[Rfam]
RNA sequence: UACGGUCAGCAGGGGUUUCUUUCGGCCUUCAGAUGCGUCAUAUCCUGUAGGCCGGCGGAAACUACUUGCCGACUCUA
Dot-bracket structure: ....(((..(((((((((((.(((((((.(((............))).))))))).))))))).))))..)))....
Numbered sequence: 001u002a003c004g005g006u007c008a009g010c011a012g013g014g015g016u017u018u019c020u021u022u023c024g025g026c027c028u029u030c031a032g033a034u035g036c037g038u039c040a041u042a043u044c045c046u047g048u049a050g051g052c053c054g055g056c057g058g059a060a061a062c063u064a065c066u067u068g069c070c071g072a073c074u075c076u077a
Stems, first nucleotide, its partner, number of pairs: 005073003010068004014063007022055007030047003